[Rfam]
RNA sequence: GAGCCAGAGCGGCUUCGGCAUGCAAUGGAGCGGAGGACCCAAACCUUGGGGCGAACCAUUGAAACGGUUAAGGGCUAAAGGUACACAAAAUAAUCCUUUAUCCUUCAUACUUUAUCCUUUCCAUGGAGGGCAUCUCUCAGCCCUAGCCCGUCAGCUAACCCCGUCAGCAUUGAGGGAGGACUG
Numbered sequence: 001g002a003g004c005c006a007g008a009g010c011g012g013c014u015u016c017g018g019c020a021u022g023c024a025a026u027g028g029a030g031c032g033g034a035g036g037a038c039c040c041a042a043a044c045c046u047u048g049g050g051g052c053g054a055a056c057c058a059u060u061g062a063a064a065c066g067g068u069u070a071a072g073g074g075c076u077a078a079a080g081g082u083a084c085a086c087a088a089a090a091u092a093a094u095c096c097u098u099u100a101u102c103c104u105u106c107a108u109a110c111u112u113u114a115u116c117c118u119u120u121c122c123a124u125g126g127a128g129g130g131c132a133u134c135u136c137u138c139a140g141c142c143c144u145a146g147c148c149c150g151u152c153a154g155c156u157a158a159c160c161c162c163g164u165c166a167g168c169a170u171u172g173a174g175g176g177a178g179g180a181c182u183g
Stems, first nucleotide, its partner, number of pairs: 012168003019028001030164004035159001040048002049149003057125003128143004
Dot-bracket structure: ...........(((....(........).((((.(....((.....))(((.....(((...............................................................)))..((((........))))...))).........).)))).)))...............